[Rfam]
RNA sequence: CGGGAGGAAUCCCGUAGGAAUGUAGUCCGAUAGGACUGAACCGUGAA
Numbered sequence: 001c002g003g004g005a006g007g008a009a010u011c012c013c014g015u016a017g018g019a020a021u022g023u024a025g026u027c028c029g030a031u032a033g034g035a036c037u038g039a040a041c042c043g044u045g046a047a
Base pairs, nucleotide, nucleotide: 001014002013003012004011005010017042018041023038024037025036026035027034
This 47-nucleotide RNA sequence belongs to the Rfam family "eL15-Euryarchaeota ribosomal protein leader". By type it is a cis-regulatory leader.